[Rfam]
RNA sequence: UCACAAGUUCAAGGCCAUAGCAGAAGCACUCAUGGUGCAGCCUGUCAGAUCUAACAAAUCUGUGAAUUCUGCU
Dot-bracket structure: ............[[[...((((((((((.......))).]]]...(((((.......)))))....)))))))
RNA: Mammalian CPEB3 ribozyme